[Rfam]
RNA sequence: ACAGAAAAAGGCAAACCUUCUGAAAAGGGGGGACGCAAAGUCGCAGGUCUAAGGUAGUUAGAAGUUUUUUUGCUAAGACGGCUGGACUGCCUGGA
Numbered sequence: 001a002c003a004g005a006a007a008a009a010g011g012c013a014a015a016c017c018u019u020c021u022g023a024a025a026a027g028g029g030g031g032g033a034c035g036c037a038a039a040g041u042c043g044c045a046g047g048u049c050u051a052a053g054g055u056a057g058u059u060a061g062a063a064g065u066u067u068u069u070u071u072g073c074u075a076a077g078a079c080g081g082c083u084g085g086a087c088u089g090c091c092u093g094g095a
Base pairs, nucleotide, nucleotide: 003092004091011036012035016031017030018029019028020027021026034081039088040087041086042085044084045083046082047079048078049077

Shown here is a 95-nucleotide sequence from Bacillus sp. Y1, a member of the family "c-di-GMP-I-GGC riboswitch aptamer".
The base pairs follow the family's consensus structure, which is taken from published work.
The source organism's lineage runs through Bacteria, Bacillati, Bacillota, Caryophanales and Bacillus.